[Rfam]
RNA sequence: AACAACACGUUGACAGGAAGAGUACGUUCGGAAACUGCUCAGAGAGGGAUACAUUUGGUGAGAGUUAUCCUGCACGGAACGAGCUGAAGACCACCCUGGAGUGUCCCUUAAUCGGGAACGGUGAUUCCGUUAUCAUCAAAUGAAGUGGUAUAGAAAUUCUAUACAAGCAGGGUGGAACCACGGGUAAUCUCGUCCCUUGA
Numbered sequence: 001a002a003c004a005a006c007a008c009g010u011u012g013a014c015a016g017g018a019a020g021a022g023u024a025c026g027u028u029c030g031g032a033a034a035c036u037g038c039u040c041a042g043a044g045a046g047g048g049a050u051a052c053a054u055u056u057g058g059u060g061a062g063a064g065u066u067a068u069c070c071u072g073c074a075c076g077g078a079a080c081g082a083g084c085u086g087a088a089g090a091c092c093a094c095c096c097u098g099g100a101g102u103g104u105c106c107c108u109u110a111a112u113c114g115g116g117a118a119c120g121g122u123g124a125u126u127c128c129g130u131u132a133u134c135a136u137c138a139a140a141u142g143a144a145g146u147g148g149u150a151u152a153g154a155a156a157u158u159c160u161a162u163a164c165a166a167g168c169a170g171g172g173u174g175g176a177a178c179c180a181c182g183g184g185u186a187a188u189c190u191c192g193u194c195c196c197u198u199g200a
Base pairs, nucleotide, nucleotide: 007102008101015097016096017095026084027083028082029081030080036074037073038072046071047070048069049068050067051066104117105116106115107114119129120128121127148164149163150162151161152160153159154158169197170196171195172194180193181192182191183190184189
RNA: T-box leader
Organism: Clostridium sp. CAG:81